[Rfam]
Nucleotides: 067
Base pairs, nucleotide, nucleotide: 012048013047014046015045017043025039026038027037028036029035053067054066055065056064057063
Number, partner (000 for none) and nucleotide at each position: 001000a002000g003000u004000u005000a006000u007000g008000g009000a010000a011000c012048g013047c014046a015045g016000u017043c018000u019000a020000a021000u022000a023000c024000c025039g026038c027037c028036a029035c030000g031000u032000c033000c034000u035029g036028u037027g038026g039025c040000a041000a042000c043017g044000c045015c046014u047013g048012c049000a050000c051000a052000a053067c054066c055065c056064a057063c058000a059000u060000c061000c062000u063057g064056u065055g066054g067053g